[Rfam]
RNA sequence: CAAUCUGCCCCUUAAGGUGGAUUUUAAGUCUGGCCGGAGCUAAAGCAGAAAAGGCGCGGAAGUGUCCGCUUGGAGUCUGGUGUUUAGGCAUUGGCACGCUGGCGUAGGCCUGGGCGUGCUCAAGGCCAUUGAAAAGCUGGGUAAUGCGUGAGGCUGGAAACAGAGCAACGAAAACCGGCUGCACUAGUUCAGUCAAGGGACUGCAUUUCUGUCUUCGCU
Numbered sequence: 001c002a003a004u005c006u007g008c009c010c011c012u013u014a015a016g017g018u019g020g021a022u023u024u025u026a027a028g029u030c031u032g033g034c035c036g037g038a039g040c041u042a043a044a045g046c047a048g049a050a051a052a053g054g055c056g057c058g059g060a061a062g063u064g065u066c067c068g069c070u071u072g073g074a075g076u077c078u079g080g081u082g083u084u085u086a087g088g089c090a091u092u093g094g095c096a097c098g099c100u101g102g103c104g105u106a107g108g109c110c111u112g113g114g115c116g117u118g119c120u121c122a123a124g125g126c127c128a129u130u131g132a133a134a135a136g137c138u139g140g141g142u143a144a145u146g147c148g149u150g151a152g153g154c155u156g157g158a159a160a161c162a163g164a165g166c167a168a169c170g171a172a173a174a175c176c177g178g179c180u181g182c183a184c185u186a187g188u189u190c191a192g193u194c195a196a197g198g199g200a201c202u203g204c205a206u207u208u209c210u211g212u213c214u215u216c217g218c219u
Base pairs, nucleotide, nucleotide: 010017011016043219045218046217048215049214058210059209060208061207062206063205064204065203066199067198069197070196071195072194073193075190077187078186079185080184081183082182083181087127088126089125091123092122093121094119095118096117097116098115099114100113101110102109103108130134135180136179137178138177139176140175145172147170148169149168154163155162156161

Shown here is a 219-nucleotide sequence from Coemansia sp. RSA 1813, a member of the family "Protozoan signal recognition particle RNA".
Clan: SRP clan.
It scores 96 bits against the family's covariance model.
A reference for the family is Wild et al. (2002), "Towards the structure of the mammalian signal recognition particle", Curr Opin Struct Biol.